About this RNA: The family of this 86-nucleotide RNA is "PhotoRC-II RNA". It is annotated as a cis-regulatory element.
RNA sequence: UCAUCAUAUAUUCCCUCUAACCGAGAUCACGGGGGUUACAUCUCUCAUAUCCACUAGUGAAGGGAUUAGUGGAAAUAUCCGUAUCG
Numbered sequence: 001u002c003a004u005c006a007u008a009u010a011u012u013c014c015c016u017c018u019a020a021c022c023g024a025g026a027u028c029a030c031g032g033g034g035g036u037u038a039c040a041u042c043u044c045u046c047a048u049a050u051c052c053a054c055u056a057g058u059g060a061a062g063g064g065a066u067u068a069g070u071g072g073a074a075a076u077a078u079c080c081g082u083a084u085c086g
Base pairs, nucleotide, nucleotide: 013035014034015033016032017031018029023044024043025042026041027040051072052071053070054069055068056067057066